A member of the RNA family "L31-Actinobacteria ribosomal protein leader" from Oerskovia sp. Root918, 45 nucleotides long. For this family Rfam cites "Discovery of 20 novel ribosomal leader candidates in bacteria and archaea" (Eckert and Weinberg, BMC Microbiol, 2020). Rfam classes the family as a cis-regulatory leader. Lineage of the source: Bacteria > Bacillati > Micrococcales > Cellulomonadaceae > Oerskovia.
RNA sequence: CCGUCCCCGGUUCACGGCUGCUGUCCAGGCAGGCGACCCGGGGGC
Numbered sequence: 001c002c003g004u005c006c007c008c009g010g011u012u013c014a015c016g017g018c019u020g021c022u023g024u025c026c027a028g029g030c031a032g033g034c035g036a037c038c039c040g041g042g043g044g045c
Base pairs, nucleotide, nucleotide: 003045004044005043007041008040009039010038015035016034018032019031020030021029022028